[Rfam]
RNA sequence: GGAGGUAGGUCCUCCAAAGUCUGCUGUCGGAAGUCGGUUUUAAACCACCUUCAAACGGCUGUUAUUAAGAGUGAUGGUCGGAAGCGUUGAAGGAAAAUCAGAAUGAAAUUCUGGCGAGG
Numbered sequence: 001g002g003a004g005g006u007a008g009g010u011c012c013u014c015c016a017a018a019g020u021c022u023g024c025u026g027u028c029g030g031a032a033g034u035c036g037g038u039u040u041u042a043a044a045c046c047a048c049c050u051u052c053a054a055a056c057g058g059c060u061g062u063u064a065u066u067a068a069g070a071g072u073g074a075u076g077g078u079c080g081g082a083a084g085c086g087u088u089g090a091a092g093g094a095a096a097a098u099c100a101g102a103a104u105g106a107a108a109u110u111c112u113g114g115c116g117a118g119g
Stems, first nucleotide, its partner, number of pairs: 001015005016041006023034003045119002048092001051090004056080001058078003062074004098114005
RNA: Group II catalytic intron D1-D4-2
Organism: Endozoicomonas numazuensis